[Rfam]
RNA: mir-191 microRNA precursor family
RNA sequence: GGCAGAAGAGCAGGGAACGAAAUCCAAGCGCAGCUGGAAUGCUCUGGAGACAACAGCUGCUUUUGGGAUUCCGUUGCCCGCUGUCCAGCCG
Numbered sequence: 001g002g003c004a005g006a007a008g009a010g011c012a013g014g015g016a017a018c019g020a021a022a023u024c025c026a027a028g029c030g031c032a033g034c035u036g037g038a039a040u041g042c043u044c045u046g047g048a049g050a051c052a053a054c055a056g057c058u059g060c061u062u063u064u065g066g067g068a069u070u071c072c073g074u075u076g077c078c079c080g081c082u083g084u085c086c087a088g089c090c091g
Stems, first nucleotide, its partner, number of pairs: 009082003013078001017074003021070003024066004030060007